[Rfam]
RNA: Small nucleolar RNA snoR27
Organism: Salix brachista
Nucleotides: 088
Base pairs, nucleotide, nucleotide: 002087003086004085005084006083007082
Number, partner (000 for none) and nucleotide at each position: 001000u002087g003086u004085g005084g006083a007082u008000c009000a010000a011000u012000g013000a014000u015000g016000u017000u018000a019000u020000u021000g022000a023000a024000u025000u026000u027000a028000c029000u030000g031000c032000g033000u034000u035000a036000u037000c038000u039000u040000u041000c042000u043000g044000c045000a046000u047000c048000u049000a050000a051000c052000a053000a054000u055000g056000a057000a058000a059000u060000g061000g062000a063000g064000a065000u066000a067000a068000u069000u070000u071000u072000a073000a074000u075000c076000g077000c078000u079000g080000a081000g082007a083006u084005c085004c086003a087002u088000u